[Rfam]
RNA sequence: UCCCAGAUGAGCAUUGAUUGUCCGGUGUGCGGGCUUCAAACCCGCAGCUGAUGAGAGUCGGAGUGGUUCAGUUCCACAUUCUGGGC
Numbered sequence: 001u002c003c004c005a006g007a008u009g010a011g012c013a014u015u016g017a018u019u020g021u022c023c024g025g026u027g028u029g030c031g032g033g034c035u036u037c038a039a040a041c042c043c044g045c046a047g048c049u050g051a052u053g054a055g056a057g058u059c060g061g062a063g064u065g066g067u068u069c070a071g072u073u074c075c076a077c078a079u080u081c082u083g084g085g086c
Stems, first nucleotide, its partner, number of pairs: 002085006012027005028046006048061005063077004
Source information
Shown here is an 86-nucleotide RNA sequence from Trichonephila clavipes, a member of the family "Selenocysteine transfer RNA". The organism belongs to Trichonephila, within Eukaryota. It scores 49 bits against the family's covariance model. Its Rfam clan is "tRNA clan". The family's consensus secondary structure is taken from published work.